[Rfam]
RNA: TPP riboswitch aptamer (THI element)
RNA sequence: GGCGUCCACCACGGGAGCUCGCGGCAGCGAGCUGAGAGGGAGCUGAGCCGCUCCGACCGUCGAACCUGAUCCGGGUCAUGCCGGCGAAGGAAGCGAGGAGCAGCCGUGCU
Number, nucleotide and partner (000 for none) at each position: 001g000002g000003c000004g000005u000006c098007c097008a000009c095010c000011a060012c059013g058014g057015g000016a000017g032018c031019u030020c029021g028022c000023g000024g000025c000026a000027g000028c021029g020030a019031g018032c017033u000034g000035a000036g000037a000038g000039g054040g053041a052042g051043c050044u000045g000046a000047g000048c000049c000050g043051c042052u041053c040054c039055g000056a000057c014058c013059g012060u011061c000062g000063a000064a000065c090066c089067u088068g000069a000070u000071c084072c083073g082074g081075g000076u000077c000078a000079u000080g000081c074082c073083g072084g071085c000086g000087a000088a067089g066090g065091a000092a000093g000094c000095g009096a000097g007098g006099a000100g000101c000102a000103g000104c000105c000106g000107u000108g000109c000110u000